[Rfam]
RNA sequence: GUGGUGGCGCGGGGGUUUUACCGUUUCCUCCGCUUAAGUCCGGCCGAAGCAGAACGGUGUCAGGCAGGACUACACCAC
Numbered sequence: 001g002u003g004g005u006g007g008c009g010c011g012g013g014g015g016u017u018u019u020a021c022c023g024u025u026u027c028c029u030c031c032g033c034u035u036a037a038g039u040c041c042g043g044c045c046g047a048a049g050c051a052g053a054a055c056g057g058u059g060u061c062a063g064g065c066a067g068g069a070c071u072a073c074a075c076c077a078c
Stems, first nucleotide, its partner, number of pairs: 001078006009033004038070004043065003
The family of this 78-nucleotide RNA is "CyVA-1 RNA". Rfam describes the family as follows. Cyanobacteria, Acidobacteria (1 example), Verrucomicrobia (1 example).